Rfam assigns this 170-nucleotide RNA from Stackebrandtia albiflava to the family "c-di-AMP riboswitch aptamer (ydaO/yuaA leader)". Lineage of the source: Bacteria > Actinomycetota > Actinomycetes > Glycomycetales > Stackebrandtia. It scores 54 bits against the family's covariance model.

RNA sequence: GGGCGGCCACCGCUGAGUCGCCCGGUGACGGGCGAGCCGGGGAACCACCGCUCCGCCCGAGGCGGGGCAGGGGUGAAUCCGUACGCGGCGCGGCCUCCCGUCCGCCGCGCGGUAGGGCGGCUUCGGCCCGAACCCGACAGCUAACCCGGUAAGCGGUCGACGAAGAAGGA
Numbered sequence: 001g002g003g004c005g006g007c008c009a010c011c012g013c014u015g016a017g018u019c020g021c022c023c024g025g026u027g028a029c030g031g032g033c034g035a036g037c038c039g040g041g042g043a044a045c046c047a048c049c050g051c052u053c054c055g056c057c058c059g060a061g062g063c064g065g066g067g068c069a070g071g072g073g074u075g076a077a078u079c080c081g082u083a084c085g086c087g088g089c090g091c092g093g094c095c096u097c098c099c100g101u102c103c104g105c106c107g108c109g110c111g112g113u114a115g116g117g118c119g120g121c122u123u124c125g126g127c128c129c130g131a132a133c134c135c136g137a138c139a140g141c142u143a144a145c146c147c148g149g150u151a152a153g154c155g156g157u158c159g160a161c162g163a164a165g166a167a168g169g170a
Stems, first nucleotide, its partner, number of pairs: 011155004018035007036150006046070001071135003079112004115129004